[Rfam]
RNA sequence: AAGUCAGCUUAGUACAGCACUUACUUCGGUAAAAUAAAUUUCUAGAAAAAAUUUUAAUAGGGUUCGAAUCCCAUAACAAGUGUUAACGCAGCCUGACUUUUUU
Numbered sequence: 001a002a003g004u005c006a007g008c009u010u011a012g013u014a015c016a017g018c019a020c021u022u023a024c025u026u027c028g029g030u031a032a033a034a035u036a037a038a039u040u041u042c043u044a045g046a047a048a049a050a051a052u053u054u055u056a057a058u059a060g061g062g063u064u065c066g067a068a069u070c071c072c073a074u075a076a077c078a079a080g081u082g083u084u085a086a087c088g089c090a091g092c093c094u095g096a097c098u099u100u101u102u103u
Base pairs, nucleotide, nucleotide: 002098003097004096005095006094007093012087013086017083018082019081020080025068026067027066028065029064
A member of the RNA family "Vault RNA" from Brachionus plicatilis, 103 nucleotides long. The family's RNA type in Rfam is non-coding RNA gene. This family of RNAs are found as part of the enigmatic vault ribonucleoprotein complex. The family has 73 seed sequences and 2,873 matches in Rfam 15.1. The base pairs follow the family's consensus structure, which is taken from published work. A reference for the family is Stadler et al. (2009), "Evolution of Vault RNAs", Mol Biol Evol.